The family of this 67-nucleotide sequence from Cnephaeus nilssonii is "mir-9256 microRNA precursor family".
Pairs were carried over by alignment from the consensus structure, which was predicted with RNAalifold.
Taxonomically the source falls in Cnephaeus (Eukaryota, Tetrapoda, Theria, Boreoeutheria).

[Rfam]
RNA sequence: GUGUACUCUGAGUGGCCUGAUUAUUAUGAUCUCUGGAUGCAUAAUAAUCUGGCCACUCAGUGUAUAU
Numbered sequence: 001g002u003g004u005a006c007u008c009u010g011a012g013u014g015g016c017c018u019g020a021u022u023a024u025u026a027u028g029a030u031c032u033c034u035g036g037a038u039g040c041a042u043a044a045u046a047a048u049c050u051g052g053c054c055a056c057u058c059a060g061u062g063u064a065u066a067u
Stems, first nucleotide, its partner, number of pairs: 004064003008060010019049010
Dot-bracket structure: ...(((.((((((((((.((((((((((...........)))))))))).)))))))))).)))...